[Rfam]
RNA sequence: CAGGCAUGCUGGAGCCCCGCAGCGGCGCCUGGGUAAAGUGGCUGGCACCGUCAAGGAUGCGCCCUUGCAGCCCGACACCGUAAAUUCAACCGGGGCUUAU
Number, nucleotide and partner (000 for none) at each position: 001c000002a000003g000004g000005c000006a000007u000008g000009c000010u000011g000012g098013a097014g096015c095016c094017c093018c092019g091020c000021a000022g000023c080024g079025g078026c000027g000028c000029c000030u074031g073032g072033g071034u069035a000036a000037a000038g000039u000040g000041g000042c000043u000044g000045g000046c000047a000048c000049c000050g000051u000052c000053a000054a000055g000056g000057a000058u000059g000060c000061g000062c000063c000064c000065u000066u000067g000068c000069a034070g000071c033072c032073c031074g030075a000076c000077a000078c025079c024080g023081u000082a000083a000084a000085u000086u000087c000088a000089a000090c000091c019092g018093g017094g016095g015096c014097u013098u012099a000100u000
The record is a 100-nucleotide RNA from Pararhizobium polonicum, which matches "ybhL leader" in Rfam.
On this family, see Corbino et al., Genome Biol 2005: "Evidence for a second class of S-adenosylmethionine riboswitches and other regulatory RNA motifs in alpha-proteobacteria".
Rfam links the family to the GO term regulation of gene expression.
The family's RNA type in Rfam is cis-regulatory leader.
It scores 72 bits against the family's covariance model.
From the family's description: This family is a putative regulatory RNA structure that is found upstream of an uncharacterized membrane protein in alpha-proteobacteria.